A member of the RNA family "S4-Clostridia ribosomal protein leader", 66 nucleotides long.
RNA sequence: GAAAGGCUGUAUGCCUGAUGAGGACGUACAGCUGGAUAUGCACCUUCGUGUAUAUCCCACUUUAAA
Numbered sequence: 001g002a003a004a005g006g007c008u009g010u011a012u013g014c015c016u017g018a019u020g021a022g023g024a025c026g027u028a029c030a031g032c033u034g035g036a037u038a039u040g041c042a043c044c045u046u047c048g049u050g051u052a053u054a055u056c057c058c059a060c061u062u063u064a065a066a
Stems, first nucleotide, its partner, number of pairs: 005033008034057009